The record is a 186-nucleotide RNA from Endomicrobium proavitum, which matches "FMN riboswitch aptamer (RFN element)" in Rfam. Taxonomically the source falls in Endomicrobium (Bacteria, Pseudomonadati, Elusimicrobiota, Endomicrobiales). Its family is annotated with FMN binding in the Gene Ontology.

Nucleotides: 186
Stems, first nucleotide, its partner, number of pairs: 003184001005182006016047003049166002051156002053101004096154002105131005136152005158169003
Number, partner (000 for none) and nucleotide at each position: 001000a002000a003184u004000a005182g006181u007180c008179u009178u010177c011000g012000g013000g014000g015000a016047a017046g018045g019000u020000g021000a022000g023000a024000a025000a026000g027000a028000c029000a030000g031000a032000a033000g034000g035000u036000c037000u038000u039000u040000c041000a042000a043000c044000u045018c046017c047016u048000u049166a050165c051156c052155g053101g054100c055099a056098g057000u058000g059000a060000a061000a062000a063000a064000c065000a066000u067000c068000g069000u070000u071000g072000u073000u074000u075000g076000u077000a078000a079000a080000u081000g082000a083000a084000a085000c086000g087000a088000a089000g090000u091000u092000u093000u094000a095000a096154g097153u098056c099055u100054g101053c102000g103000a104000c105131u106130c107129c108128g109127c110000c111000g112000g113000a114000a115000c116000a117000a118000u119000g120000u121000u122000c123000c124000a125000a126000a127109g128108c129107g130106g131105a132000c133000u134000g135000a136152a137151u138150c139149a140148g141000u142000g143000a144000a145000a146000c147000u148140c149139u150138g151137a152136u153097a154096c155052c156051g157000a158169c159168g160167g161000u162000a163000a164000a165050g166049u167160c168159c169158g170000g171000a172000u173000g174000a175000g176000a177010g178009a179008a180007g181006a182005u183000a184003a185000a186000a